[Rfam]
RNA sequence: CUUCAACGACCCCAGCCAGAGCGGCCGGCCCUCCGGGCGCUGCCCGUAGGUCGCCAGCAGCGCCUGGGCCUC
Numbered sequence: 001c002u003u004c005a006a007c008g009a010c011c012c013c014a015g016c017c018a019g020a021g022c023g024g025c026c027g028g029c030c031c032u033c034c035g036g037g038c039g040c041u042g043c044c045c046g047u048a049g050g051u052c053g054c055c056a057g058c059a060g061c062g063c064c065u066g067g068g069c070c071u072c
Stems, first nucleotide, its partner, number of pairs: 015025003031068003038062002040057003044053001046051001